Rfam assigns this 49-nucleotide RNA sequence from Bradyrhizobium sp. LTSP885 to the family "Guanidine-II riboswitch aptamer (mini-ykkC)".
[Rfam]
RNA sequence: UGGGAAGGACGACCUUCCAUUCAUGACAUCAUCCGCGGGGACGACCCUG
Number, nucleotide and partner (000 for none) at each position: 001u000002g000003g018004g017005a016006a015007g014008g013009a000010c000011g000012a000013c008014c007015u006016u005017c004018c003019a000020u000021u000022c000023a000024u000025g000026a000027c000028a000029u000030c000031a000032u000033c000034c000035g000036c049037g048038g047039g046040g045041a000042c000043g000044a000045c040046c039047c038048u037049g036
Pairs were carried over by alignment from the consensus structure, which is taken from published work. Lineage of the source: Bacteria > Pseudomonadati > Alphaproteobacteria > Hyphomicrobiales > Bradyrhizobium.